[Rfam]
RNA sequence: CUCUUAUCCAGAGAGGCGGAGGGAACUGGCCCUGCGAAGCCUCGGCAACCGUGUUACAGGUGCUAAUUCCAGCAAAGCUAUGCGCUUUGGCAGAUAAGAG
Numbered sequence: 001c002u003c004u005u006a007u008c009c010a011g012a013g014a015g016g017c018g019g020a021g022g023g024a025a026c027u028g029g030c031c032c033u034g035c036g037a038a039g040c041c042u043c044g045g046c047a048a049c050c051g052u053g054u055u056a057c058a059g060g061u062g063c064u065a066a067u068u069c070c071a072g073c074a075a076a077g078c079u080a081u082g083c084g085c086u087u088u089g090g091c092a093g094a095u096a097a098g099a100g
Stems, first nucleotide, its partner, number of pairs: 001100008013043005021032003026072004044064004049060002051057002068092001073089006

The family of this 100-nucleotide RNA sequence from Tumebacillus algifaecis is "SAM riboswitch aptamer (S box leader)". From the family's description: The SAM riboswitch is found upstream of a number of genes which code for proteins involved in methionine or cysteine biosynthesis in Gram-positive bacteria. Its family is annotated with regulation of gene expression in the Gene Ontology. The match comes from Rfam's covariance-model search (91 bits).